[Rfam]
Overview:
Rfam assigns this 98-nucleotide RNA from Vogesella sp. LIG4 to the family "Glycine riboswitch aptamer". Taxonomically the source falls in Vogesella (Bacteria, Pseudomonadati, Pseudomonadota, Betaproteobacteria). Pairs were carried over by alignment from the consensus structure.
RNA sequence: GCCACCAGUGCAGGAGAGACUGCCCGGAUCUGAUCCAGCGGCAGCGCCGAAGGGGAAUCGCCCCAGAAACUCUCAGGCAAAAGAACUGCACUGGUCAG
Dot-bracket structure: .....((((((((......((((.................)))).(((((..(((....(...).....))))).))).......)))))))).....